[Rfam]
RNA sequence: UUCCUGCAGACUUUGGGGGGGAUUUUCCCAGGGUCUCUGCAGACAGAGACUAGGGAAAUCCCCCAAAAAGUCUGCAGGAA
Numbered sequence: 001u002u003c004c005u006g007c008a009g010a011c012u013u014u015g016g017g018g019g020g021g022a023u024u025u026u027c028c029c030a031g032g033g034u035c036u037c038u039g040c041a042g043a044c045a046g047a048g049a050c051u052a053g054g055g056a057a058a059u060c061c062c063c064c065a066a067a068a069a070g071u072c073u074g075c076a077g078g079a080a
Stems, first nucleotide, its partner, number of pairs: 001080009012069002017064012030051002035048005